[Rfam]
RNA sequence: GACUCAGGAGUACGCCGCUACCUUAUUAUCACUUGGUAUUAAUUGAAAGUCCAUGUGAUGUAACGUAGUGGAACCCACCUGUGG
Number, nucleotide and partner (000 for none) at each position: 001g000002a000003c083004u000005c081006a080007g079008g078009a000010g076011u000012a000013c000014g000015c071016c070017g069018c068019u067020a066021c065022c000023u063024u062025a061026u060027u000028a000029u058030c057031a056032c055033u000034u053035g052036g051037u000038a000039u000040u000041a000042a000043u000044u000045g000046a000047a000048a000049g000050u000051c036052c035053a034054u000055g032056u031057g030058a029059u000060g026061u025062a024063a023064c000065g021066u020067a019068g018069u017070g016071g015072a000073a000074c000075c000076c010077a000078c008079c007080u006081g005082u000083g003084g000
Rfam assigns this 84-nucleotide RNA from Pseudolycoriella hygida to the family "mir-989 microRNA precursor family". The family's consensus secondary structure was predicted with RNAalifold. A search with the family's covariance model found it, with a score of 73 bits. The family has 9 seed sequences and 57 matches in Rfam 15.1.